[Rfam]
RNA sequence: CGAGAAGACCGGGUGGUCGCGGCGAGCUGGAACCAAUCCCACGCUGGGAUGAGGCCGCACGUCGAGGAAAGUCCGGACUCCACAGAGCACGGUGGUUGCUAACGGCAACCCAGGGUGACCUGCGGGACAGUGCCACAGAAAACAAACCGCCCGCUUCGCGGGUAAGGGUGAAAAGGUGCGGUAAGAGCGCACCAGCACGCCAGGUGACUGGGGUGGCUAGGUAAACCCCACCGGGAGCAAGGUCAAGUAGUUGCACGGCUCGUUCCGUGCGGCUGAGUUCCAGAGCUGCUCGCUUGCUGAUGAACAGGUAGACCGCUUGAGGUGCCCAGCAAUGGUGCGCCCAGAUGGAUGGCCGCCUCGCGCUGAGGACACCUUCGGGUGGAAUGAGCGUAGGACAAAAUCCGGCUCAUAGGUCUUCUCGGCGU
Numbered sequence: 001c002g003a004g005a006a007g008a009c010c011g012g013g014u015g016g017u018c019g020c021g022g023c024g025a026g027c028u029g030g031a032a033c034c035a036a037u038c039c040c041a042c043g044c045u046g047g048g049a050u051g052a053g054g055c056c057g058c059a060c061g062u063c064g065a066g067g068a069a070a071g072u073c074c075g076g077a078c079u080c081c082a083c084a085g086a087g088c089a090c091g092g093u094g095g096u097u098g099c100u101a102a103c104g105g106c107a108a109c110c111c112a113g114g115g116u117g118a119c120c121u122g123c124g125g126g127a128c129a130g131u132g133c134c135a136c137a138g139a140a141a142a143c144a145a146a147c148c149g150c151c152c153g154c155u156u157c158g159c160g161g162g163u164a165a166g167g168g169u170g171a172a173a174a175g176g177u178g179c180g181g182u183a184a185g186a187g188c189g190c191a192c193c194a195g196c197a198c199g200c201c202a203g204g205u206g207a208c209u210g211g212g213g214u215g216g217c218u219a220g221g222u223a224a225a226c227c228c229c230a231c232c233g234g235g236a237g238c239a240a241g242g243u244c245a246a247g248u249a250g251u252u253g254c255a256c257g258g259c260u261c262g263u264u265c266c267g268u269g270c271g272g273c274u275g276a277g278u279u280c281c282a283g284a285g286c287u288g289c290u291c292g293c294u295u296g297c298u299g300a301u302g303a304a305c306a307g308g309u310a311g312a313c314c315g316c317u318u319g320a321g322g323u324g325c326c327c328a329g330c331a332a333u334g335g336u337g338c339g340c341c342c343a344g345a346u347g348g349a350u351g352g353c354c355g356c357c358u359c360g361c362g363c364u365g366a367g368g369a370c371a372c373c374u375u376c377g378g379g380u381g382g383a384a385u386g387a388g389c390g391u392a393g394g395a396c397a398a399a400a401u402c403c404g405g406c407u408c409a410u411a412g413g414u415c416u417u418c419u420c421g422g423c424g425u
Base pairs, nucleotide, nucleotide: 001421002420003419004418005417006416007415008414009413010412011410012357013356014355015354016353017352018351020064021063022062023061024060026058027057070407071406073405074404075403076402077401078237079236080235081234085291086290087289088288090233091232092231093230094229095109096108097107098106099105110124111122112121113120114119125228126227130226131225132222133221134220147167148166149163150162151161152160153159154158175193176192177191178190179189180188195217196215197214198213200211201210202209203208241314242313243312244311252304254302255301283295284294285293286292321341322340323339324338325337326335327334328333

A member of the RNA family "Bacterial RNase P class A" from Corynebacterium sp. ED61, 425 nucleotides long.
It scores 276 bits against the family's covariance model.
Taxonomically the source falls in Corynebacterium (Bacteria, Actinomycetes, Mycobacteriales, Corynebacteriaceae).
Pairs were carried over by alignment from the consensus structure, which is taken from published work.